Shown here is a 298-nucleotide sequence from Naegleria gruberi, a member of the family "Metazoan signal recognition particle RNA". It is annotated as a non-coding RNA gene. The signal recognition particle (SRP) is a universally conserved ribonucleoprotein. It is involved in the co-translational targeting of proteins to membranes.

[Rfam]
RNA sequence: CUGGGCUACUGUAGGGAGGUAGCUGUGAUGGUUCUCUGCCACAGCGUCAGGCAAAGGGAUGGUUCUUCAGACUCAUUCCUCUGUUAGCAAUAUGGUGACGAUGUUCUGUCUGCGCCAAUAGCGGUGUGACCAUAGUACCUCCCCAUGAAAAAGGAGAAACUAGGGUCCUAAUGAAAGGUGAACCGGUUGAGGCAGGAUAACUGAGCAAAUCAUAGCCUUCACACUGUAUGAUGGUCAGAUUGCAGAACUGAGCAUGAGCUAACAGAGAGUGAAAUCUGGGAGUCAGACUAAUGUUUUU
Dot-bracket structure: ((((((((((......).))))))....(((.......))))))....(((((.((...((((((..((((.(..(((.(((((((((..((((.(......(((((((((..((((...(((((((((((.((((..((((...(....).))))..)))).))))(....).(((((.....((((....(((.....)))....))))...))))).)))))))....)))).))...)))))))...))))).))))))))))))...).)))).))))))..))..)))))..